Description: Shown here is a 96-nucleotide RNA from Cavia porcellus, a member of the family "Vault RNA". Taxonomically the source falls in Cavia (Eukaryota, Mammalia, Theria, Boreoeutheria). This family of RNAs are found as part of the enigmatic vault ribonucleoprotein complex. Rfam classes the family as a non-coding RNA gene. Rfam's curators put it in the seed alignment.

RNA sequence: GGGCUGGCUUUAUCUCAGCGGUUCCUUCGACUGUUCUUAGUUGACUUCUUGGGCUGGUCUGGUGUUUGAGACCCGCGGGCGCUCUCUGGUCCUUUU
Dot-bracket structure: .((((((......(((.((((....(((((...................................)))))..)))))))......)))))).....